[Rfam]
RNA: MIR8024 microRNA precursor family
RNA sequence: UUGGAGGUUUUGACGACUUCAGCUUGCAAACUUGAUGGAUUUGGACACUUUAACUUGAAAACUUGGUGGAUUUGGAUACUUCGGCU
Number, nucleotide and partner (000 for none) at each position: 001u084002u083003g082004g081005a080006g079007g000008u000009u076010u075011u074012g073013a072014c000015g000016a000017c068018u000019u066020c065021a064022g000023c000024u000025u059026g000027c057028a056029a000030a000031c000032u053033u052034g051035a050036u000037g048038g000039a000040u000041u000042u000043g000044g000045a000046c000047a000048c037049u000050u035051u034052a033053a032054c000055u000056u028057g027058a000059a025060a000061a000062c000063u000064u021065g020066g019067u000068g017069g000070a000071u000072u013073u012074g011075g010076a009077u000078a000079c006080u005081u004082c003083g002084g001085c000086u000